[Rfam]
Description:
small nucleolar RNA snoR114: an 84-nucleotide RNA from Hibiscus trionum. The family's consensus secondary structure was predicted with RNAalifold. NCBI's taxonomy places the organism under Eukaryota, Tracheophyta, rosids, Malvoideae, Hibiscus. By type it is a C/D-box small nucleolar RNA. It scores 58 bits against the family's covariance model. Rfam links the family to the GO terms RNA processing and nucleolus.
RNA sequence: GGGCAAUGAAGAAACUGGCGCUCUUGUGAUGGUAGGGUCCAUCAUGAUUCUGAUCAAACGAUUAGAACCAGCGCGACUGAGUUC
Number, nucleotide and partner (000 for none) at each position: 001g084002g083003g082004c081005a000006a000007u000008g000009a000010a000011g000012a000013a000014a000015c000016u000017g000018g000019c000020g000021c000022u000023c000024u000025u000026g000027u000028g000029a000030u000031g000032g000033u000034a000035g000036g000037g000038u000039c000040c000041a000042u000043c000044a000045u000046g000047a000048u000049u000050c000051u000052g000053a000054u000055c000056a000057a000058a000059c000060g000061a000062u000063u000064a000065g000066a000067a000068c000069c000070a000071g000072c000073g000074c000075g000076a000077c000078u000079g000080a000081g004082u003083u002084c001